[Rfam]
RNA sequence: UACUUAUCAAGAGAGGUGGAGGGACUGGCCCGCUGAAACCUCAGCAACAGAACGCAUCUGUCUGUGCUAAAUCCUGCAAGCAAUAGCUUGAAAGAUAAGUU
Numbered sequence: 001u002a003c004u005u006a007u008c009a010a011g012a013g014a015g016g017u018g019g020a021g022g023g024a025c026u027g028g029c030c031c032g033c034u035g036a037a038a039c040c041u042c043a044g045c046a047a048c049a050g051a052a053c054g055c056a057u058c059u060g061u062c063u064g065u066g067c068u069a070a071a072u073c074c075u076g077c078a079a080g081c082a083a084u085a086g087c088u089u090g091a092a093a094g095a096u097a098a099g100u101u
Base pairs, nucleotide, nucleotide: 002100003099004098005097006096007095008094013042014041015040016039017038021031022030023029025076027074028073043068044067045066046065048064049063050062051061072093077090078089079088080087081086
RNA: SAM riboswitch aptamer (S box leader)
Organism: Oceanobacillus iheyensis